[Rfam]
RNA sequence: UGCAAGGAUUUUACGAUUAAGAAUCAAUUCUUUCUUUCUUGUAAAGAUUGUGUAUUAAUUU
Number, nucleotide and partner (000 for none) at each position: 001u000002g000003c000004a000005a000006g000007g000008a000009u000010u000011u000012u000013a000014c000015g000016a000017u000018u041019a040020a039021g038022a037023a036024u000025c000026a000027a000028u000029u000030c000031u000032u000033u000034c000035u000036u023037u022038c021039u020040u019041g018042u000043a000044a000045a000046g000047a000048u000049u000050g000051u000052g000053u000054a000055u000056u000057a000058a000059u000060u000061u000

Shown here is a 61-nucleotide RNA sequence from Oryza sativa, a member of the family "Plastid-rps18 3UTR RNA". Lineage of the source: Eukaryota > Viridiplantae > Embryophyta > Liliopsida > Oryza sativa. A reference for the family is Richter et al. (2023), "Retrograde signaling in plants: A critical review focusing on the GUN pathway and beyond", Plant Commun. About the family: Plastid rps18 is a non-coding RNA (ncRNA) present in plastids. It was identified as a short stem-loop motif in the 3 prime untranslate region (3UTR) of rps18 gene. The family has 238 seed sequences and 1,462 matches in Rfam 15.1. Rfam classes the family as a cis-regulatory element.